Shown here is an 87-nucleotide RNA from Polarella glacialis, a member of the family "rpsL sRNA". Taxonomically the source falls in Polarella (Eukaryota, Sar, Alveolata, Dinophyceae). Pairs were carried over by alignment from the consensus structure, which is taken from published work.
[Rfam]
RNA sequence: UUGAUGUUGUUGUUGUUUUGUUGUUGUCUUGAUACCAAAUACAAAACAUUGCAACAAAACACAAACCAACAACAAAACAACAAACAA
Numbered sequence: 001u002u003g004a005u006g007u008u009g010u011u012g013u014u015g016u017u018u019u020g021u022u023g024u025u026g027u028c029u030u031g032a033u034a035c036c037a038a039a040u041a042c043a044a045a046a047c048a049u050u051g052c053a054a055c056a057a058a059a060c061a062c063a064a065a066c067c068a069a070c071a072a073c074a075a076a077a078c079a080a081c082a083a084a085c086a087a
Base pairs, nucleotide, nucleotide: 011082012081013080014079015078016077018075019074020073021072022071023070024044025043026042027041029039049069050068051067